[Rfam]
The family of this 122-nucleotide RNA sequence is "LOOT RNA". The match comes from Rfam's covariance-model search (84 bits).
RNA sequence: GGCCUAACCCGUAGAGAUUAUCUUUACGGUAUGGUCAAAAACCCACAGAAGAAUACUGAACCUUGCGUUCAGCGAUCCUUCUGUGGGUCUAUACGGGAAACUGUAUAGGGACCGAAAGGUCC
Numbered sequence: 001g002g003c004c005u006a007a008c009c010c011g012u013a014g015a016g017a018u019u020a021u022c023u024u025u026a027c028g029g030u031a032u033g034g035u036c037a038a039a040a041a042c043c044c045a046c047a048g049a050a051g052a053a054u055a056c057u058g059a060a061c062c063u064u065g066c067g068u069u070c071a072g073c074g075a076u077c078c079u080u081c082u083g084u085g086g087g088u089c090u091a092u093a094c095g096g097g098a099a100a101c102u103g104u105a106u107a108g109g110g111a112c113c114g115a116a117a118g119g120u121c122c
Base pairs, nucleotide, nucleotide: 001036002035003034004033009029010028011027012026013025014024015023016022017021042087043086044085045084046083047082048081049080050079051078054074056072057071058070059069060068061067089108090107091106092105093104094103095102096101109122110121111120112119113118